Background
The record is a 99-nucleotide sequence from Empedobacter falsenii, which matches "SAM riboswitch aptamer (S box leader)" in Rfam. It scores 77 bits against the family's covariance model. Its family is annotated with regulation of gene expression in the Gene Ontology.
RNA sequence: AUUUUAUCAAGAAAAGUGGAGGGAAAUGGCCCAAAGAAACUUUAGCAACCUGAUUAACGAAUCAAGGUGCUAAAUCCAUCCUUAUAGGAAAGAUGAAUA
Numbered sequence: 001a002u003u004u005u006a007u008c009a010a011g012a013a014a015a016g017u018g019g020a021g022g023g024a025a026a027u028g029g030c031c032c033a034a035a036g037a038a039a040c041u042u043u044a045g046c047a048a049c050c051u052g053a054u055u056a057a058c059g060a061a062u063c064a065a066g067g068u069g070c071u072a073a074a075u076c077c078a079u080c081c082u083u084a085u086a087g088g089a090a091a092g093a094u095g096a097a098u099a
Stems, first nucleotide, its partner, number of pairs: 003097006013043005021032003026079004044071004049067002051064004075091001080088003